[Rfam]
RNA sequence: CUUCAGCGAGCCCAGCCAGAGCGGCUUGGCGGGAUCCCGGUCCCGGCCAUAGGUCGCCAGCAGUGCCUGGGCCUC
Number, nucleotide and partner (000 for none) at each position: 001c000002u000003u000004c000005a000006g000007c000008g000009a000010g000011c000012c000013c000014a026015g025016c024017c023018a000019g000020a000021g000022c000023g017024g016025c015026u014027u000028g000029g000030c000031g000032g000033g000034a000035u070036c069037c000038c065039g064040g000041u000042c000043c060044c000045g058046g000047c056048c000049a054050u000051a000052g000053g000054u049055c000056g047057c000058c045059a000060g043061c000062a000063g000064u039065g038066c000067c000068u000069g036070g035071g000072c000073c000074u000075c000

Shown here is a 75-nucleotide RNA sequence from Streptomyces sp. HK803, a member of the family "ASpks TB sRNA".